[Rfam]
RNA sequence: AUAGGGCAACAGCUUCUAUGCAGAUUCAGUGGGCCCCGUUAAUCUUCUCAGUCGCCAAACAUAGAAAGAUUAUCGGGGUUUUCUUUA
Numbered sequence: 001a002u003a004g005g006g007c008a009a010c011a012g013c014u015u016c017u018a019u020g021c022a023g024a025u026u027c028a029g030u031g032g033g034c035c036c037c038g039u040u041a042a043u044c045u046u047c048u049c050a051g052u053c054g055c056c057a058a059a060c061a062u063a064g065a066a067a068g069a070u071u072a073u074c075g076g077g078g079u080u081u082u083c084u085u086u087a
Stems, first nucleotide, its partner, number of pairs: 001019005028086002031081008040072007

Shown here is an 87-nucleotide RNA sequence from Candidatus Erwinia dacicola, a member of the family "CopA-like RNA".
The family's RNA type in Rfam is antisense RNA.
About the family: In several groups of bacterial plasmids, antisense RNAs regulate copy number through inhibition of replication initiator protein synthesis. These RNAs are characterised by a long hairpin structure interrupted by several unpaired residues or bulged loops. In plasmid R1, the inhibitory complex between the antisense RNA (CopA) and its target mRNA (CopT) is characterised by a four-way junction structure and a side-by-side helical alignment.
NCBI's taxonomy places the organism under Bacteria, Pseudomonadati, Gammaproteobacteria, Erwiniaceae, Erwinia.
Gene Ontology term of the family: mRNA binding.
The base pairs follow the family's consensus structure, which was predicted with PFOLD.